c-di-GMP-I riboswitch aptamer: an 89-nucleotide RNA from Heyndrickxia ginsengihumi. The organism belongs to Heyndrickxia, within Bacteria.

RNA sequence: UUCAGCAAAGGGCAAACCUUCUUGAAAAAAAGGGGCGCAAAGUCACGGGUCUAAGGUAUGAUACGUACUACGACGGCUGGGCUACCUGA
Numbered sequence: 001u002u003c004a005g006c007a008a009a010g011g012g013c014a015a016a017c018c019u020u021c022u023u024g025a026a027a028a029a030a031a032g033g034g035g036c037g038c039a040a041a042g043u044c045a046c047g048g049g050u051c052u053a054a055g056g057u058a059u060g061a062u063a064c065g066u067a068c069u070a071c072g073a074c075g076g077c078u079g080g081g082c083u084a085c086c087u088g089a
Base pairs, nucleotide, nucleotide: 012038013037017033018032019031020030022029023028041083042082043081044080046079047078048077049074050073051072056068057067058066059065